[Rfam]
The record is a 131-nucleotide RNA from Secundilactobacillus similis, which matches "Enterococcus sRNA 68 (Lacto-3 RNA)" in Rfam. Taxonomically the source falls in Secundilactobacillus similis (Bacteria, Bacillota, Lactobacillales, Secundilactobacillus). It scores 85 bits against the family's covariance model. For this family Rfam cites "Whole-genome mapping of 5' RNA ends in bacteria by tagged sequencing: a comprehensive view in Enterococcus faecalis" (Innocenti et al., RNA, 2015). It is annotated as a small RNA.
RNA sequence: UGCGAUGAGUCGAGAAUGUCACGUCAUCAGCAAUGGUGAUCUGCGCAAGCAGCUCGGUGACCUUUUUGCACGGCAGGCCGUUUACUCCGUCGGAUAUACGGAGGCCUUGGCUCAAAGGAAAUGUGGAUUUU
Numbered sequence: 001u002g003c004g005a006u007g008a009g010u011c012g013a014g015a016a017u018g019u020c021a022c023g024u025c026a027u028c029a030g031c032a033a034u035g036g037u038g039a040u041c042u043g044c045g046c047a048a049g050c051a052g053c054u055c056g057g058u059g060a061c062c063u064u065u066u067u068g069c070a071c072g073g074c075a076g077g078c079c080g081u082u083u084a085c086u087c088c089g090u091c092g093g094a095u096a097u098a099c100g101g102a103g104g105c106c107u108u109g110g111c112u113c114a115a116a117g118g119a120a121a122u123g124u125g126g127a128u129u130u131u
Base pairs, nucleotide, nucleotide: 018061019060020059021058022057023040024039025038026037027036028035041052042051043050044049075107076106077105078104079103086102087101088100089099090098118131119130120129121128122127